Source information:
Rfam assigns this 344-nucleotide sequence from Qipengyuania pelagi to the family "Alphaproteobacteria transfer-messenger RNA". Rfam's curators write: Bacterial tmRNA, also known as 10Sa RNA or SsrA, is named for its dual tRNA and mRNA-like properties. Rfam classes the family as a non-coding RNA gene. Clan: tRNA clan.
[Rfam]
RNA sequence: UCACUUUAAAUUCACGCUCGAUCGCCUAUAUGGGGUCUGUCGGUUUCGGCCGACUAUGGCGAUAAAUGGUGCCGUGUAAUAGGUACAACGGACCCGGGGGCAGUACCCGGCGGCUCCACCACAAACCGCGCAUUGUCGCGGUUUAUGACGGGGCCGAACUAGGAUCGACGUGUGCUGAAAGACGGUAUUUUCGCCCGGGCUGAGUAACCCGUAAAACUGUUCGCAACACACAAGUGCCAACGACAACGAAGCACUCGCUCUCGCUGCGUAAUCUGACGGGCUAACGCCCUGAUCUUACAAAGCUAAAGCGCGGUUGGACCCACCGGGCAACAGAAGCGGAUUCC
Numbered sequence: 001u002c003a004c005u006u007u008a009a010a011u012u013c014a015c016g017c018u019c020g021a022u023c024g025c026c027u028a029u030a031u032g033g034g035g036u037c038u039g040u041c042g043g044u045u046u047c048g049g050c051c052g053a054c055u056a057u058g059g060c061g062a063u064a065a066a067u068g069g070u071g072c073c074g075u076g077u078a079a080u081a082g083g084u085a086c087a088a089c090g091g092a093c094c095c096g097g098g099g100g101c102a103g104u105a106c107c108c109g110g111c112g113g114c115u116c117c118a119c120c121a122c123a124a125a126c127c128g129c130g131c132a133u134u135g136u137c138g139c140g141g142u143u144u145a146u147g148a149c150g151g152g153g154c155c156g157a158a159c160u161a162g163g164a165u166c167g168a169c170g171u172g173u174g175c176u177g178a179a180a181g182a183c184g185g186u187a188u189u190u191u192c193g194c195c196c197g198g199g200c201u202g203a204g205u206a207a208c209c210c211g212u213a214a215a216a217c218u219g220u221u222c223g224c225a226a227c228a229c230a231c232a233a234g235u236g237c238c239a240a241c242g243a244c245a246a247c248g249a250a251g252c253a254c255u256c257g258c259u260c261u262c263g264c265u266g267c268g269u270a271a272u273c274u275g276a277c278g279g280g281c282u283a284a285c286g287c288c289c290u291g292a293u294c295u296u297a298c299a300a301a302g303c304u305a306a307a308g309c310g311c312g313g314u315u316g317g318a319c320c321c322a323c324c325g326g327g328c329a330a331c332a333g334a335a336g337c338g339g340a341u342u343c344c
Base pairs, nucleotide, nucleotide: 039054040053041052042051043050058195059194060193061192062191069188070187071186072185073184074183075182084174085173086172088171089170090169094110095109096108097107098106111156112155113154114153115152116151117150196211197210198209199208201223202222203221207218311325312324313323314322316342317341319339320338